[Rfam]
RNA sequence: CCCCUUCAAAUCCGCGGAGGAGGGGGCUAUAUCCUGUCCUGUCUCCGCAAGGGGACUAUGGCGAUAAACGCGCACGGAAUAAGCGGUUCGGACCCGGGGGCGGUACCCGGCGGCUCCACCAAUCUCCUGCUUCCCGGUCAUGGACGGGGGGAUCCCAGGACGCGAGGGGCCGAAACAGGAUCGACGGACGUGUAAAGGUGUUUGCUUUCGCUCGGCAGGAUGCCACCGUUACCGGCUCAAAUUGUACAGUUGCCAAUGACAACCGUGCUCCGGUGGCCGUCGCUGCGUAACGCAGCUUAAACCACCGAUCUUAAAGUCCUGUGGGUUUGCACCUUCAGGCGGGGCUCGCUGGCGCCUGGCAACAGAAGCCAGCACU
Numbered sequence: 001c002c003c004c005u006u007c008a009a010a011u012c013c014g015c016g017g018a019g020g021a022g023g024g025g026g027c028u029a030u031a032u033c034c035u036g037u038c039c040u041g042u043c044u045c046c047g048c049a050a051g052g053g054g055a056c057u058a059u060g061g062c063g064a065u066a067a068a069c070g071c072g073c074a075c076g077g078a079a080u081a082a083g084c085g086g087u088u089c090g091g092a093c094c095c096g097g098g099g100g101c102g103g104u105a106c107c108c109g110g111c112g113g114c115u116c117c118a119c120c121a122a123u124c125u126c127c128u129g130c131u132u133c134c135c136g137g138u139c140a141u142g143g144a145c146g147g148g149g150g151g152a153u154c155c156c157a158g159g160a161c162g163c164g165a166g167g168g169g170c171c172g173a174a175a176c177a178g179g180a181u182c183g184a185c186g187g188a189c190g191u192g193u194a195a196a197g198g199u200g201u202u203u204g205c206u207u208u209c210g211c212u213c214g215g216c217a218g219g220a221u222g223c224c225a226c227c228g229u230u231a232c233c234g235g236c237u238c239a240a241a242u243u244g245u246a247c248a249g250u251u252g253c254c255a256a257u258g259a260c261a262a263c264c265g266u267g268c269u270c271c272g273g274u275g276g277c278c279g280u281c282g283c284u285g286c287g288u289a290a291c292g293c294a295g296c297u298u299a300a301a302c303c304a305c306c307g308a309u310c311u312u313a314a315a316g317u318c319c320u321g322u323g324g325g326u327u328u329g330c331a332c333c334u335u336c337a338g339g340c341g342g343g344g345c346u347c348g349c350u351g352g353c354g355c356c357u358g359g360c361a362a363c364a365g366a367a368g369c370c371a372g373c374a375c376u
Base pairs, nucleotide, nucleotide: 041056042055043054044053045052060212061211062210063209064208070205071204072201073200074199075198084190085189088187089186090185094110095109096108097107098106111172112171113170114169115168116167117166213228214227215226219238220237222236223235224234342357343356344355345354348373349372350371351370352369353368
Dot-bracket structure: ........................................(((((......)))))...(((((.....((((((........((..(((...(((((.......)))))(((((((................................................)))))))............))).)).......))))..))..)))))[[[...((.(((.]]].....))))).......................................................................................................[[[[..((((((]]]]..........))))))...

Alphaproteobacteria transfer-messenger RNA: a 376-nucleotide sequence from Albimonas pacifica. The organism belongs to Albimonas, within Bacteria. On this family, see Williams and Bartel, RNA 1996: "Phylogenetic analysis of tmRNA secondary structure". Pairs were carried over by alignment from the consensus structure, which is taken from published work. It is annotated as a non-coding RNA gene.